[Rfam]
RNA sequence: UUGCGGACCGUGUCAACCGGACGCGACAGGGAUGUAGAUUAUGGUGGUUUUUCCGGUUUCUCACCAUGGCGACAAGCGGCAGUCGCGUGCCUCACCUGUCCGGGCC
Numbered sequence: 001u002u003g004c005g006g007a008c009c010g011u012g013u014c015a016a017c018c019g020g021a022c023g024c025g026a027c028a029g030g031g032a033u034g035u036a037g038a039u040u041a042u043g044g045u046g047g048u049u050u051u052u053c054c055g056g057u058u059u060c061u062c063a064c065c066a067u068g069g070c071g072a073c074a075a076g077c078g079g080c081a082g083u084c085g086c087g088u089g090c091c092u093c094a095c096c097u098g099u100c101c102g103g104g105c106c
Base pairs, nucleotide, nucleotide: 006105008103009102011023012022013021014020025100026099027098028097029096030095034091037088040068041067042066043065044064045063046062069080070079073078
Shown here is a 106-nucleotide RNA sequence from Shinella sp. WSJ-2, a member of the family "Rhizobiales sRNA Atu_At1". It is annotated as a small RNA. A search with the family's covariance model found it, with a score of 76 bits. The family has 33 seed sequences and 200 matches in Rfam 15.1. The organism belongs to Shinella, within Bacteria.